RNA sequence: GUGUCGGUAAGAUAUGUUUGAUAUUCUUGGUUGUAUUAUACUAUCACCCGGGAAUCAAACAUAUUACAUAUCGAUCG
Number, nucleotide and partner (000 for none) at each position: 001g000002u000003g000004u000005c073006g072007g071008u070009a069010a000011g065012a064013u063014a062015u061016g060017u059018u058019u057020g056021a055022u054023a000024u052025u051026c000027u000028u000029g049030g048031u000032u046033g045034u000035a000036u000037u000038a000039u000040a000041c000042u000043a000044u000045c033046a032047c000048c030049c029050g000051g025052g024053a000054a022055u021056c020057a019058a018059a017060c016061a015062u014063a013064u012065u011066a000067c000068a000069u009070a008071u007072c006073g005074a000075u000076c000077g000
Record summary
This 77-nucleotide RNA from Papilio xuthus belongs to the Rfam family "mir-190 microRNA precursor family". A reference for the family is Bar et al. (2008), "MicroRNA discovery and profiling in human embryonic stem cells by deep sequencing of small RNA libraries", Stem Cells. The family has 76 seed sequences and 1,667 matches in Rfam 15.1.